[Rfam]
RNA sequence: AAAAUCAGGAAUAACAAAGUAGUUAUUUCUUGAGUUAUGUUACUGAUAAGCAGGCAGAACUCAGAUUCCAUAUUAAUCAGCCCAUUUUUACUGGGUUAAUUGGUAUGUAAUCUGAGUUUUUUUUCUUGAAAGGAGUACA
Numbered sequence: 001a002a003a004a005u006c007a008g009g010a011a012u013a014a015c016a017a018a019g020u021a022g023u024u025a026u027u028u029c030u031u032g033a034g035u036u037a038u039g040u041u042a043c044u045g046a047u048a049a050g051c052a053g054g055c056a057g058a059a060c061u062c063a064g065a066u067u068c069c070a071u072a073u074u075a076a077u078c079a080g081c082c083c084a085u086u087u088u089u090a091c092u093g094g095g096u097u098a099a100u101u102g103g104u105a106u107g108u109a110a111u112c113u114g115a116g117u118u119u120u121u122u123u124u125c126u127u128g129a130a131a132g133g134a135g136u137a138c139a
Base pairs, nucleotide, nucleotide: 002036003035005033007030008029009028010027011026012025013024014023015022038139039138040137043135044134047131051128052127053126056120057119058118059117060116061115062114063113064112065111066110067109069107070106071105072104073103074102080096081095082094083093084092

This 139-nucleotide RNA from Lacrimispora celerecrescens belongs to the Rfam family "cis-regulatory element of the bglG/LicT operon". NCBI's taxonomy places the organism under Bacteria, Bacillati, Bacillota, Lachnospiraceae, Lacrimispora. The sequence is in the family's curated seed alignment. For this family Rfam cites "Translation efficiency of antiterminator proteins is a determinant for the difference in glucose repression of two beta-glucoside phosphotransferase system gene clusters in Corynebacterium glutamicum R" (Tanaka et al., J Bacteriol, 2011).